[Rfam]
RNA sequence: CGUGCUUUGGUCGAGUGGUUCUUGACAGUUCAACAGUUCUUUGCCAAAAUUGUGAAAUGUUUAGGACCACUUGAUCAGGG
Dot-bracket structure: .............((((((.((.((((.((((....................)))).)))).)).)))))).........

The family of this 80-nucleotide RNA sequence from Scleropages formosus is "mir-203 microRNA precursor family". A reference for the family is Lim et al. (2003), "Vertebrate microRNA genes", Science. Taxonomically the source falls in Scleropages (Eukaryota, Opisthokonta, Neopterygii, Osteoglossocephala). The match comes from Rfam's covariance-model search (89 bits). Pairs were carried over by alignment from the consensus structure, which was predicted with RNAalifold.